[Rfam]
RNA sequence: AGGGGUUGAGGCCACAGCAGAAGUGCUUAUGGCACAGCCCUGUCAGAUUCAACAUAUCUGCAAAUUCUGCU
Dot-bracket structure: .......[.[[[...((((((((((.......))).]]]]...((((((....).)))))....)))))))
Numbered sequence: 001a002g003g004g005g006u007u008g009a010g011g012c013c014a015c016a017g018c019a020g021a022a023g024u025g026c027u028u029a030u031g032g033c034a035c036a037g038c039c040c041u042g043u044c045a046g047a048u049u050c051a052a053c054a055u056a057u058c059u060g061c062a063a064a065u066u067c068u069g070c071u
Stems, first nucleotide, its partner, number of pairs: 008040001010039003016071007023035003044060005049054001
This 71-nucleotide RNA sequence from Alligator sinensis belongs to the Rfam family "Mammalian CPEB3 ribozyme". Taxonomically the source falls in Alligator (Eukaryota, Bilateria, Craniata, Amniota). It scores 49 bits against the family's covariance model.